Source information: Rfam assigns this 280-nucleotide RNA sequence from Nannospalax galili to the family "Mason-Pfizer monkey virus packaging signal". The organism belongs to Nannospalax, within Eukaryota. A reference for the family is Harrison et al. (1995), "Secondary structure model of the Mason-Pfizer monkey virus 5' leader sequence: identification of a structural motif common to a variety of retroviruses", J Virol. The family has 9 seed sequences and 2,921 matches in Rfam 15.1.
[Rfam]
Nucleotides: 280
Stems, first nucleotide, its partner, number of pairs: 007030002012026003037051003089133001091131001093128001099122002102118005142156001144155004164207003167203002215255006224242005265280001268277001270275001
Number, partner (000 for none) and nucleotide at each position: 001000u002000g003000g004000c005000g006000c007030c008029c009000a010000a011000u012026g013025u014024g015000g016000g017000g018000c019000c020000u021000g022000g023000a024014u025013a026012c027000u028000g029008g030007g031000a032000g033000a034000c035000a036000a037051u038050g039049u040000g041000a042000g043000g044000g045000u046000c047000c048000g049039a050038c051037g052000a053000c054000g055000a056000a057000g058000g059000g060000a061000a062000g063000a064000a065000g066000g067000g068000g069000u070000g071000c072000g073000c074000a075000c076000c077000c078000g079000a080000u081000c082000a083000a084000a085000c086000a087000a088000u089133a090000g091131u092000u093128u094000g095000g096000a097000g098000a099122u100121g101000u102118u103117g104116c105115g106114g107000u108000a109000g110000c111000c112000u113000g114106c115105u116104g117103u118102g119000a120000c121100c122099a123000a124000g125000c126000c127000g128093a129000c130000a131091g132000g133089u134000a135000a136000g137000u138000u139000g140000g141000u142156c143000a144155u145154u146153c147152a148000a149000u150000c151000a152147u153146g154145g155144g156142g157000c158000a159000a160000g161000a162000a163000u164207u165206g166205a167203g168202u169000c170000a171000g172000c173000a174000u175000c176000a177000g178000a179000a180000a181000u182000a183000u184000g185000u186000g187000a188000u189000a190000c191000a192000a193000u194000u195000a196000a197000a198000a199000g200000a201000a202168g203167c204000u205166u206165u207164a208000c209000a210000g211000g212000c213000a214000a215255g216254a217253g218252g219251a220250g221000u222000a223000a224242a225241g226240g227239u228238u229000a230000c231000a232000a233000c234000u235000g236000a237000g238228g239227a240226u241225u242224u243000a244000u245000u246000u247000c248000a249000u250220u251219u252218c253217u254216u255215u256000g257000a258000u259000u260000u261000u262000g263000u264000g265280a266000a267000a268277g269000a270275c271000a272000u273000c274000u275270g276000c277268c278000c279000a280265u